[Rfam]
RNA sequence: CCCAAGGCUCACGCCUUGGGCUAAGUUCUGUCGCCCCUACAGGU
Dot-bracket structure: ((((((((....))))))))..............((.....)).
RNA: Acido-Lenti-1 RNA